[Rfam]
RNA sequence: CAUGCGGUGCCCGGCGCGGAAAAUAAGAGCUGUGACUGGGUAGCGGCAUGACCGAUUGAGGU
Numbered sequence: 001c002a003u004g005c006g007g008u009g010c011c012c013g014g015c016g017c018g019g020a021a022a023a024u025a026a027g028a029g030c031u032g033u034g035a036c037u038g039g040g041u042a043g044c045g046g047c048a049u050g051a052c053c054g055a056u057u058g059a060g061g062u
Base pairs, nucleotide, nucleotide: 001050002049003048004047005046007044008043011039012038013037014036015034016033017032018031019030